[Rfam]
Rfam assigns this 116-nucleotide RNA sequence from Olimarabidopsis pumila to the family "Plastid-psbA-1 3UTR RNA". Pairs were carried over by alignment from the consensus structure, which was predicted with LocARNA. Plastid psbA-1 is a non-coding RNA (ncRNA) present in plastids. Rfam classes the family as a cis-regulatory element.

RNA sequence: GUUGAAGCUCCAUCUACAAAUGGAUAAUUCGUUAGUGUUAGUCUAGAUCUAGUUUAGUAAAAAACGAGCAAUAUAAGCCUUCUUUUUAAUUUUAAGAGGGCUUAUAUUGCUCAUUU
Numbered sequence: 001g002u003u004g005a006a007g008c009u010c011c012a013u014c015u016a017c018a019a020a021u022g023g024a025u026a027a028u029u030c031g032u033u034a035g036u037g038u039u040a041g042u043c044u045a046g047a048u049c050u051a052g053u054u055u056a057g058u059a060a061a062a063a064a065c066g067a068g069c070a071a072u073a074u075a076a077g078c079c080u081u082c083u084u085u086u087u088a089a090u091u092u093u094a095a096g097a098g099g100g101c102u103u104a105u106a107u108u109g110c111u112c113a114u115u116u
Stems, first nucleotide, its partner, number of pairs: 009024005062116003066112009076102003080098005